[Rfam]
The family of this 90-nucleotide RNA from Enterorhabdus sp. P55 is "SAM riboswitch aptamer (S box leader)". Pairs were carried over by alignment from the consensus structure, which is taken from published work. Rfam links the family to the GO term regulation of gene expression. Rfam's curators write: The SAM riboswitch is found upstream of a number of genes which code for proteins involved in methionine or cysteine biosynthesis in Gram-positive bacteria.

RNA sequence: CCGUUAUCCAGAGUCGGGGGAGAGAGUUGGCUCUAUGAUCCCGGCACCAACCUGGCGCUGCCAAGGUGGUCCAGCCGACACCGAUGAAGG
Numbered sequence: 001c002c003g004u005u006a007u008c009c010a011g012a013g014u015c016g017g018g019g020g021a022g023a024g025a026g027u028u029g030g031c032u033c034u035a036u037g038a039u040c041c042c043g044g045c046a047c048c049a050a051c052c053u054g055g056c057g058c059u060g061c062c063a064a065g066g067u068g069g070u071c072c073a074g075c076c077g078a079c080a081c082c083g084a085u086g087a088a089g090g
Base pairs, nucleotide, nucleotide: 001090002089004087005086006085007084008083013045015043016042017041018040022033023032024031028077029076030075046070047069048068049067051066052065053063054062055061056060074082